[Rfam]
RNA sequence: GAGUUAGCGAUGCUUAUAAAAAUAAUUCUUGUUCUGACUUACUCAAUUUAGUUAUGACAAACCUCUUAUUACACUCAUAGAAUCUGAGCUAC
Numbered sequence: 001g002a003g004u005u006a007g008c009g010a011u012g013c014u015u016a017u018a019a020a021a022a023u024a025a026u027u028c029u030u031g032u033u034c035u036g037a038c039u040u041a042c043u044c045a046a047u048u049u050a051g052u053u054a055u056g057a058c059a060a061a062c063c064u065c066u067u068a069u070u071a072c073a074c075u076c077a078u079a080g081a082a083u084c085u086g087a088g089c090u091a092c
Base pairs, nucleotide, nucleotide: 003092004091006090007089
This 92-nucleotide RNA from Theobroma umbraticum belongs to the Rfam family "Small nucleolar RNA snoR8a". For this family Rfam cites "Multiple snoRNA gene clusters from Arabidopsis" (Brown et al., RNA, 2001). The organism belongs to Theobroma, within Eukaryota. The base pairs follow the family's consensus structure, which was predicted with WAR. Its family is annotated with nucleolus and RNA processing in the Gene Ontology. Rfam classes the family as a C/D-box small nucleolar RNA.